[Rfam]
RNA sequence: AGCCAGCGAUGACAAAUCAAAUAACUUUUCUGACACCUACUAUGAGAGCUGGACUCCGGCUCCUGAUUCUACCUUUCUACCUGAGGCUC
Numbered sequence: 001a002g003c004c005a006g007c008g009a010u011g012a013c014a015a016a017u018c019a020a021a022u023a024a025c026u027u028u029u030c031u032g033a034c035a036c037c038u039a040c041u042a043u044g045a046g047a048g049c050u051g052g053a054c055u056c057c058g059g060c061u062c063c064u065g066a067u068u069c070u071a072c073c074u075u076u077c078u079a080c081c082u083g084a085g086g087c088u089c
Stems, first nucleotide, its partner, number of pairs: 001088004048060005
Shown here is an 89-nucleotide sequence from Echeneis naucrates, a member of the family "Small nucleolar RNA SNORD60". The organism belongs to Echeneis, within Eukaryota.